[Rfam]
RNA sequence: GUGGGUACUGGCCUCGGUGCUGGUGGAGCAGUGAGCACGCCAUACAUUAUAUCUGUGACACCUGCCACCCAGCCCAAGGCCCCUAGGCCCAC
Numbered sequence: 001g002u003g004g005g006u007a008c009u010g011g012c013c014u015c016g017g018u019g020c021u022g023g024u025g026g027a028g029c030a031g032u033g034a035g036c037a038c039g040c041c042a043u044a045c046a047u048u049a050u051a052u053c054u055g056u057g058a059c060a061c062c063u064g065c066c067a068c069c070c071a072g073c074c075c076a077a078g079g080c081c082c083c084u085a086g087g088c089c090c091a092c
Base pairs, nucleotide, nucleotide: 001092002091003090004089005088006087010081011080012079013078014077016075017074019073020072021071022070023069025068028065029064030063031062036057037056038055039054
Dot-bracket structure: ((((((...(((((.((.(((((.(..((((....((((..............))))....))))..)))))))).))))).....))))))